[Rfam]
RNA sequence: UAGUAAGGGAUUUCUCAAGGGUGGUCGGCACACUCCCCAUUAGAAAGGGGGUGAUGCUGUGUGACAGUUUUCGAAUCAUUAAUGCUGGCAAUUUCAUUUGCUAGUUUAAUCAUAACGGUACUGUCAUUUCAUAACCAUAAUAAAUAAUCCACCCUUGAGUUAGCGGCUCCGGGUGGAUUAUUUUCGCCUAAGGCCGAUUCCCUUUGAGGGAACCUUCUAUUGCUGACCGGACAUGUGCCAGCAUGUUCG
Numbered sequence: 001u002a003g004u005a006a007g008g009g010a011u012u013u014c015u016c017a018a019g020g021g022u023g024g025u026c027g028g029c030a031c032a033c034u035c036c037c038c039a040u041u042a043g044a045a046a047g048g049g050g051g052u053g054a055u056g057c058u059g060u061g062u063g064a065c066a067g068u069u070u071u072c073g074a075a076u077c078a079u080u081a082a083u084g085c086u087g088g089c090a091a092u093u094u095c096a097u098u099u100g101c102u103a104g105u106u107u108a109a110u111c112a113u114a115a116c117g118g119u120a121c122u123g124u125c126a127u128u129u130c131a132u133a134a135c136c137a138u139a140a141u142a143a144a145u146a147a148u149c150c151a152c153c154c155u156u157g158a159g160u161u162a163g164c165g166g167c168u169c170c171g172g173g174u175g176g177a178u179u180a181u182u183u184u185c186g187c188c189u190a191a192g193g194c195c196g197a198u199u200c201c202c203u204u205u206g207a208g209g210g211a212a213c214c215u216u217c218u219a220u221u222g223c224u225g226a227c228c229g230g231a232c233a234u235g236u237g238c239c240a241g242c243a244u245g246u247u248c249g
Stems, first nucleotide, its partner, number of pairs: 001222005007216003011212001012197002014159008023149003031053002034051005063125006076090001099117002102114001171188001198211004228249009
Dot-bracket structure: (((((.(((.(((((((((((.(((.....((.(((((........))))))).........((((((.......(.............)........((.(...........).))..)))))).....................)))..))))))))...........(................).......))((((......))))).))).))))).....(((((((((....)))))))))